Shown here is a 212-nucleotide RNA from Alkaliphilus pronyensis, a member of the family "T-box leader". It scores 140 bits against the family's covariance model. The family's RNA type in Rfam is cis-regulatory leader. The organism belongs to Alkaliphilus, within Bacteria. Uncharged tRNA acts as the effector for transcription antitermination of genes in the T-box leader family.
RNA sequence: AUAACAGCAAUGAAGAAGAGGAGUAAAUAAUACAGCCUAAAAGAGAAAAGAACCCAAGGCUGAAAGGUUCUUUAAGGUAAUGGUUAUUGAAGGUAGCUUCUGAGCUUCUGUAUUGAAACAAAGUAGGUACAGACGGGAAACCGUUAAAUUUUAUUAAGAGCCUGUUUAAGAGCAGGAAUUAAGGUGGUACCGCGAAAUCCUUCGUCCUUAUA
Numbered sequence: 001a002u003a004a005c006a007g008c009a010a011u012g013a014a015g016a017a018g019a020g021g022a023g024u025a026a027a028u029a030a031u032a033c034a035g036c037c038u039a040a041a042a043g044a045g046a047a048a049a050g051a052a053c054c055c056a057a058g059g060c061u062g063a064a065a066g067g068u069u070c071u072u073u074a075a076g077g078u079a080a081u082g083g084u085u086a087u088u089g090a091a092g093g094u095a096g097c098u099u100c101u102g103a104g105c106u107u108c109u110g111u112a113u114u115g116a117a118a119c120a121a122a123g124u125a126g127g128u129a130c131a132g133a134c135g136g137g138a139a140a141c142c143g144u145u146a147a148a149u150u151u152u153a154u155u156a157a158g159a160g161c162c163u164g165u166u167u168a169a170g171a172g173c174a175g176g177a178a179u180u181a182a183g184g185u186g187g188u189a190c191c192g193c194g195a196a197a198u199c200c201u202u203c204g205u206c207c208u209u210a211u212a
Stems, first nucleotide, its partner, number of pairs: 007105002015100004026088006036077003047073008108132007134143003161176006181209004192205005